[Rfam]
RNA sequence: ACCGGUCUCCGGUAGUGGCCUCCGGGCGGCCCGGCUCGACAGCCGGCCCGUCCGGGCGCUUCGAUCGAAGACCGGC
Numbered sequence: 001a002c003c004g005g006u007c008u009c010c011g012g013u014a015g016u017g018g019c020c021u022c023c024g025g026g027c028g029g030c031c032c033g034g035c036u037c038g039a040c041a042g043c044c045g046g047c048c049c050g051u052c053c054g055g056g057c058g059c060u061u062c063g064a065u066c067g068a069a070g071a072c073c074g075g076c
Base pairs, nucleotide, nucleotide: 002075003074004073005072006071007070010067011066012065013064017060018059019058021056022055023054024053025052026051027050028049029048
Dot-bracket structure: .((((((..((((...(((.(((((((((..................))))))))).)))...))))..)))))).